[Rfam]
A member of the RNA family "L31-Actinobacteria ribosomal protein leader" from Yinghuangia soli, 51 nucleotides long. It scores 43 bits against the family's covariance model. The family's consensus secondary structure is taken from published work.
RNA sequence: UCGGCCCCGGUUCACGUCCGCCCCUCACUCGUACGGUGGCGACCCGGUGCC
Numbered sequence: 001u002c003g004g005c006c007c008c009g010g011u012u013c014a015c016g017u018c019c020g021c022c023c024c025u026c027a028c029u030c031g032u033a034c035g036g037u038g039g040c041g042a043c044c045c046g047g048u049g050c051c
Stems, first nucleotide, its partner, number of pairs: 003051003007047004015041004021035001